Shown here is a 69-nucleotide RNA sequence, a member of the family "tRNA". Pairs were carried over by alignment from the consensus structure, which is taken from published work.
[Rfam]
RNA sequence: CAUAGUGUAGCUUAAUAUUAAAGCAUCUGGCCUACACCCAGAAGAUUUCAUGACCAAUGAACACUCUGA
Numbered sequence: 001c002a003u004a005g006u007g008u009a010g011c012u013u014a015a016u017a018u019u020a021a022a023g024c025a026u027c028u029g030g031c032c033u034a035c036a037c038c039c040a041g042a043a044g045a046u047u048u049c050a051u052g053a054c055c056a057a058u059g060a061a062c063a064c065u066c067u068g069a
Stems, first nucleotide, its partner, number of pairs: 001068002004065004010024004026042005047061004
Dot-bracket structure: ((.((((..((((.......)))).(((((.......)))))....((((.......)))))))).)).